[Rfam]
RNA sequence: GCAAUUCCCACCAGUGGGGUGUCAUCCCAGUGCCCAGACACUGGGAUCCAGGAAUUUUAUUAAGUUGGUAAGCAUAAAAGUAGCUAUUUUAUGUAAAAAUACAACAUUUUGAUGAUUAUGAAAAAGCUGGAUCCCAGUGUCAAGCACUGGGAUGACAUCAUAGAGGCACUGGAAUGA
Numbered sequence: 001g002c003a004a005u006u007c008c009c010a011c012c013a014g015u016g017g018g019g020u021g022u023c024a025u026c027c028c029a030g031u032g033c034c035c036a037g038a039c040a041c042u043g044g045g046a047u048c049c050a051g052g053a054a055u056u057u058u059a060u061u062a063a064g065u066u067g068g069u070a071a072g073c074a075u076a077a078a079a080g081u082a083g084c085u086a087u088u089u090u091a092u093g094u095a096a097a098a099a100u101a102c103a104a105c106a107u108u109u110u111g112a113u114g115a116u117u118a119u120g121a122a123a124a125a126g127c128u129g130g131a132u133c134c135c136a137g138u139g140u141c142a143a144g145c146a147c148u149g150g151g152a153u154g155a156c157a158u159c160a161u162a163g164a165g166g167c168a169c170u171g172g173a174a175u176g177a
Stems, first nucleotide, its partner, number of pairs: 011172005020157014037141015
The family of this 177-nucleotide RNA sequence from Trichonephila clavata is "Wolbachia sRNA 46". The literature on the family includes a 2014 paper in Proc Natl Acad Sci U S A by Mayoral et al., "Wolbachia small noncoding RNAs and their role in cross-kingdom communications". NCBI's taxonomy places the organism under Eukaryota, Eumetazoa, Orbiculariae, Nephilidae, Trichonephila. A search with the family's covariance model found it, with a score of 72 bits.